This 102-nucleotide RNA from Simplicispira hankyongi belongs to the Rfam family "Glycine riboswitch aptamer". Rfam links the family to the GO term glycine biosynthetic process. A search with the family's covariance model found it, with a score of 36 bits.
RNA sequence: CUGCCCCCCGCAGGAGAGCGCACGCCCACGGACCCGUUCCACGGCGUGCCACCGAAGGCGCAAACUCCCAUGAACGCUCAGGUACCGUACUGCACACCGUGG
Numbered sequence: 001c002u003g004c005c006c007c008c009c010g011c012a013g014g015a016g017a018g019c020g021c022a023c024g025c026c027c028a029c030g031g032a033c034c035c036g037u038u039c040c041a042c043g044g045c046g047u048g049c050c051a052c053c054g055a056a057g058g059c060g061c062a063a064a065c066u067c068c069c070a071u072g073a074a075c076g077c078u079c080a081g082g083u084a085c086c087g088u089a090c091u092g093c094a095c096a097c098c099g100u101g102g
Stems, first nucleotide, its partner, number of pairs: 008102004013097001020049007051083003054079002058077003064071001
Dot-bracket structure: .......((((.(......(((((((................))))))).(((((..(((...(......)...))))).))).............).))))